[Rfam]
RNA sequence: CUGCCUUCUGAGGCUUGUUUUAUGUUGCCUGUGGCUUAUAUUUGAACACAGGCAGCUAAAGCAAGUCUUGGACGCCA
Numbered sequence: 001c002u003g004c005c006u007u008c009u010g011a012g013g014c015u016u017g018u019u020u021u022a023u024g025u026u027g028c029c030u031g032u033g034g035c036u037u038a039u040a041u042u043u044g045a046a047c048a049c050a051g052g053c054a055g056c057u058a059a060a061g062c063a064a065g066u067c068u069u070g071g072a073c074g075c076c077a
Base pairs, nucleotide, nucleotide: 003075004074006072007071008070011068012067013066014065015064016063017062018061019060020059021058024056025055026054027053028052029051030050031049033047

A member of the RNA family "mir-1788 microRNA precursor family" from Kryptolebias marmoratus, 77 nucleotides long. The family's consensus secondary structure was predicted with RNAalifold. Taxonomically the source falls in Kryptolebias (Eukaryota, Opisthokonta, Vertebrata, Euteleostomi). It scores 69 bits against the family's covariance model. Rfam links the family to the GO terms RISC complex and miRNA-mediated post-transcriptional gene silencing.